[Rfam]
RNA sequence: CCCUUAUCUUUUAAAUGUUUCAAGUUGGUCCCUUAUCUUUAAUUUAGGUUUCAAGUUGGUCCCGUCCGUCAAUUUUUUAACUAUUUCCGUUAAAUUUGGACACGUGGCACACUUGAACAGAUGACACGUGUCCAAAUUUAACGGUAACAGUAAAAAAAAUUGACGGAAUGGACCAACUUGAAACCUAAAAAAAAGAUAAAGGACCAACUUGAAACUUUUAAAAGAUAAGGGA
Numbered sequence: 001c002c003c004u005u006a007u008c009u010u011u012u013a014a015a016u017g018u019u020u021c022a023a024g025u026u027g028g029u030c031c032c033u034u035a036u037c038u039u040u041a042a043u044u045u046a047g048g049u050u051u052c053a054a055g056u057u058g059g060u061c062c063c064g065u066c067c068g069u070c071a072a073u074u075u076u077u078u079a080a081c082u083a084u085u086u087c088c089g090u091u092a093a094a095u096u097u098g099g100a101c102a103c104g105u106g107g108c109a110c111a112c113u114u115g116a117a118c119a120g121a122u123g124a125c126a127c128g129u130g131u132c133c134a135a136a137u138u139u140a141a142c143g144g145u146a147a148c149a150g151u152a153a154a155a156a157a158a159a160u161u162g163a164c165g166g167a168a169u170g171g172a173c174c175a176a177c178u179u180g181a182a183a184c185c186u187a188a189a190a191a192a193a194a195g196a197u198a199a200a201g202g203a204c205c206a207a208c209u210u211g212a213a214a215c216u217u218u219u220a221a222a223a224g225a226u227a228a229g230g231g232a
Stems, first nucleotide, its partner, number of pairs: 002230007023209003027205003031201001033199008043189001045187003
Dot-bracket structure: .(((((((..............(((.(((.(.((((((((..(.(((.........................................................................................................................................))).)..)))))))).).))).)))..............)))))))..